[Rfam]
RNA sequence: AACCACACUAUCGAUGAAUGGAUUCACCCACGAGAUGACGUGGCUAUUUCACCUAGGAGCAUCCUAUUACCAGCCAUCACACUAAAUUAAUAGGAUGCCAUGUCCUCAUCCUAGAUGGAACAACCACGUUAUCUCACGGAUAAAUCUAUUCAUCGAUAGUAUGGUU
Numbered sequence: 001a002a003c004c005a006c007a008c009u010a011u012c013g014a015u016g017a018a019u020g021g022a023u024u025c026a027c028c029c030a031c032g033a034g035a036u037g038a039c040g041u042g043g044c045u046a047u048u049u050c051a052c053c054u055a056g057g058a059g060c061a062u063c064c065u066a067u068u069a070c071c072a073g074c075c076a077u078c079a080c081a082c083u084a085a086a087u088u089a090a091u092a093g094g095a096u097g098c099c100a101u102g103u104c105c106u107c108a109u110c111c112u113a114g115a116u117g118g119a120a121c122a123a124c125c126a127c128g129u130u131a132u133c134u135c136a137c138g139g140a141u142a143a144a145u146c147u148a149u150u151c152a153u154c155g156a157u158a159g160u161a162u163g164g165u166u
Stems, first nucleotide, its partner, number of pairs: 001166005007160001009158007017150003021146004026141001028139001032135002035132005041126003045122001047120002051116001054113002057110002059098011076087002